[Rfam]
RNA: Small nucleolar RNA SNORA71
Organism: Oreochromis niloticus
RNA sequence: GCCUGUAUCGAAAGGUGAUCAUGGCGCCUUUGUUGCCAGGUCAUUUAUUAACUACAGGCAUAUAAACAUGUGAGCCUUCCCUGUGUUUGCAGGACUGUCUGUUCCUGUCAGACCCUGGUGCUCUCAGACA
Numbered sequence: 001g002c003c004u005g006u007a008u009c010g011a012a013a014g015g016u017g018a019u020c021a022u023g024g025c026g027c028c029u030u031u032g033u034u035g036c037c038a039g040g041u042c043a044u045u046u047a048u049u050a051a052c053u054a055c056a057g058g059c060a061u062a063u064a065a066a067c068a069u070g071u072g073a074g075c076c077u078u079c080c081c082u083g084u085g086u087u088u089g090c091a092g093g094a095c096u097g098u099c100u101g102u103u104c105c106u107g108u109c110a111g112a113c114c115c116u117g118g119u120g121c122u123c124u125c126a127g128a129c130a
Stems, first nucleotide, its partner, number of pairs: 001059007014045007023037004067127001069126002072123004085113005090107005
Dot-bracket structure: (((((((......(((((((..((((.......)))).))))))).......))))))).......(.((.((((.........((((((((((........))))).)))))......)))).)))...